This 113-nucleotide RNA sequence from Theropithecus gelada belongs to the Rfam family "Y RNA".
NCBI's taxonomy places the organism under Eukaryota, Chordata, Theria, Simiiformes, Theropithecus.
Pairs were carried over by alignment from the consensus structure, which is taken from published work.
It scores 39 bits against the family's covariance model.
Rfam describes the family as follows. Y RNAs are components of the Ro ribonucleoprotein particle (Ro RNP), in association with Ro60 and La proteins. The Y RNAs and Ro60 and La proteins are well conserved, but the function of the Ro RNP is not known. In humans the RNA component can be one of four small RNAs -- hY1, hY3, hY4 and hY5.
By type it is a non-coding RNA gene.

RNA sequence: GGCUGGUUCCAAGGUAGUCAGUUAUCUCAACUGAUUGUUCACAGUCAAGUUAUAGGCUGAACUCCUUGUUCUAGUCUUUGACCCCUUCUCACUAUCACAGUUGACUGCCUAGU
Numbered sequence: 001g002g003c004u005g006g007u008u009c010c011a012a013g014g015u016a017g018u019c020a021g022u023u024a025u026c027u028c029a030a031c032u033g034a035u036u037g038u039u040c041a042c043a044g045u046c047a048a049g050u051u052a053u054a055g056g057c058u059g060a061a062c063u064c065c066u067u068g069u070u071c072u073a074g075u076c077u078u079u080g081a082c083c084c085c086u087u088c089u090c091a092c093u094a095u096c097a098c099a100g101u102u103g104a105c106u107g108c109c110u111a112g113u
Base pairs, nucleotide, nucleotide: 001109002108003107005106006105007104008103011101014098015097016093017092018091020089021088044076046074048072049071